Overview:
A member of the RNA family "SAM riboswitch aptamer (S box leader)" from Pseudoxanthomonas indica, 120 nucleotides long. The literature on the family includes a 2016 paper in Nucleic Acids Res by Huang et al., "A critical base pair in k-turns determines the conformational class adopted, and correlates with biological function". Taxonomically the source falls in Pseudoxanthomonas (Bacteria, Pseudomonadati, Gammaproteobacteria, Lysobacteraceae). Rfam links the family to the GO term regulation of gene expression. The SAM riboswitch is found upstream of a number of genes which code for proteins involved in methionine or cysteine biosynthesis in Gram-positive bacteria.
RNA sequence: UCACCAUCGAGACCGGCAGAGGGACAGGCCCUUUGAAGCCGGGGCAACCAGACGACGCGCAAGCGGCGUGGACGGUGCCAAAUCCUGCGGGGACCUCAGCGUCUGCCCGAAAGAUGGUUC
Numbered sequence: 001u002c003a004c005c006a007u008c009g010a011g012a013c014c015g016g017c018a019g020a021g022g023g024a025c026a027g028g029c030c031c032u033u034u035g036a037a038g039c040c041g042g043g044g045c046a047a048c049c050a051g052a053c054g055a056c057g058c059g060c061a062a063g064c065g066g067c068g069u070g071g072a073c074g075g076u077g078c079c080a081a082a083u084c085c086u087g088c089g090g091g092g093a094c095c096u097c098a099g100c101g102u103c104u105g106c107c108c109g110a111a112a113g114a115u116g117g118u119u120c
Stems, first nucleotide, its partner, number of pairs: 003118006013042005021031003025087004043079004048075002052069002083112001088109004093104001
The match comes from Rfam's covariance-model search (74 bits). The base pairs follow the family's consensus structure, which is taken from published work.